RNA sequence: AGAAAAUCAUGCAACUGGCGGAAAUGGAGUUCACCAUAGGGAGCAUGAUUAAUAUAAGAAUCGACCGCCUGGGUAAAUUAA
Number, nucleotide and partner (000 for none) at each position: 001a000002g000003a000004a000005a050006a049007u048008c047009a046010u045011g044012c043013a000014a000015c040016u039017g069018g068019c067020g066021g065022a000023a000024a037025u036026g035027g034028a000029g000030u000031u000032c000033a000034c027035c026036a025037u024038a000039g016040g015041g000042a000043g012044c011045a010046u009047g008048a007049u006050u005051a000052a000053u000054a000055u000056a000057a000058g000059a000060a074061u073062c072063g000064a000065c021066c020067g019068c018069c017070u000071g000072g062073g061074u060075a000076a000077a000078u000079u000080a000081a000